[Rfam]
RNA sequence: GAUGAAAACUGUUCCGUUCUUCUUCGCAUUCUUUUUUACCUUCCCCUGAUGGGAGGCGAUUCGUCAUGUGAUAAAGAAUGCGAAGACGAACAAUAAGGCCUCCCGAACCGGGGGGCCUUUUUUAU
Dot-bracket structure: ...............((((.((((((((((((((.((((..((((.....))))((((...))))..)))).)))))))))))))).))))...((((((((((.....))))))))))......
The family of this 125-nucleotide RNA sequence from Pluralibacter gergoviae is "Phenylalanine leader peptide". On this family, see Zurawski et al., Proc Natl Acad Sci U S A 1978: "Nucleotide sequence of the leader region of the phenylalanine operon of Escherichia coli". The family's RNA type in Rfam is cis-regulatory leader.